[Rfam]
RNA sequence: AAUGCGGAUGUCGAAAAGCAAUUAGAGUAGGCA
Numbered sequence: 001a002a003u004g005c006g007g008a009u010g011u012c013g014a015a016a017a018g019c020a021a022u023u024a025g026a027g028u029a030g031g032c033a
Stems, first nucleotide, its partner, number of pairs: 003020003010032003